A member of the RNA family "TPP riboswitch aptamer (THI element)" from Paenibacillus macerans, 111 nucleotides long.

RNA sequence: UGAAUCGUUCAGGGGUGCUGGAAUCGGCCGGCUGAGAUUGUAUCCCUCCAAGAUACUGACCCUUAAACCUGAUCUGGAUAAUGCCAGCGUAGGGAGCCGUCAUGGAUGGAA
Numbered sequence: 001u002g003a004a005u006c007g008u009u010c011a012g013g014g015g016u017g018c019u020g021g022a023a024u025c026g027g028c029c030g031g032c033u034g035a036g037a038u039u040g041u042a043u044c045c046c047u048c049c050a051a052g053a054u055a056c057u058g059a060c061c062c063u064u065a066a067a068c069c070u071g072a073u074c075u076g077g078a079u080a081a082u083g084c085c086a087g088c089g090u091a092g093g094g095a096g097c098c099g100u101c102a103u104g105g106a107u108g109g110a111a
Stems, first nucleotide, its partner, number of pairs: 010096001011063004017032005040056004068093004074087004
The match comes from Rfam's covariance-model search (61 bits). Taxonomically the source falls in Paenibacillus (Bacteria, Bacillota, Caryophanales, Paenibacillaceae).